Rfam assigns this 85-nucleotide sequence from Raphidocelis subcapitata to the family "Small nucleolar RNA snR60/Z15/Z230/Z193/J17". The family's RNA type in Rfam is C/D-box small nucleolar RNA. For this family Rfam cites "The high diversity of snoRNAs in plants: identification and comparative study of 120 snoRNA genes from Oryza sativa" (Chen et al., Nucleic Acids Res, 2003). Clan: SNORD77 clan.
RNA sequence: AACCGGCUCCUGAUGAUUGAAUACAAGCAUAGUUCAGCUGAAUCACCCUUGAGGAACAAAUUUUCGCCCCUAUCUGAAGCCACGG
Numbered sequence: 001a002a003c004c005g006g007c008u009c010c011u012g013a014u015g016a017u018u019g020a021a022u023a024c025a026a027g028c029a030u031a032g033u034u035c036a037g038c039u040g041a042a043u044c045a046c047c048c049u050u051g052a053g054g055a056a057c058a059a060a061u062u063u064u065c066g067c068c069c070c071u072a073u074c075u076g077a078a079g080c081c082a083c084g085g
Stems, first nucleotide, its partner, number of pairs: 005081004
Dot-bracket structure: ....((((.....................................................................))))....